[Rfam]
RNA: SAM riboswitch aptamer (S box leader)
Organism: Aneurinibacillus migulanus
RNA sequence: UUCUUAUCUAGAGAGACGGAGGGGCUGGCCCAAUGAAGUCUCGGCAACCUAAUUCGGUUAGGUGCCAAUUCCAGAGAGCGGAGGCUCGAAGAUGAGUA
Numbered sequence: 001u002u003c004u005u006a007u008c009u010a011g012a013g014a015g016a017c018g019g020a021g022g023g024g025c026u027g028g029c030c031c032a033a034u035g036a037a038g039u040c041u042c043g044g045c046a047a048c049c050u051a052a053u054u055c056g057g058u059u060a061g062g063u064g065c066c067a068a069u070u071c072c073a074g075a076g077a078g079c080g081g082a083g084g085c086u087c088g089a090a091g092a093u094g095a096g097u098a
Base pairs, nucleotide, nucleotide: 001098003096004095005094006093007092008091013042014041015040016039017038021031022030023029025074026073027072028071043066044065045064046063048062049061050060051059052058053057070090076087077086078085079084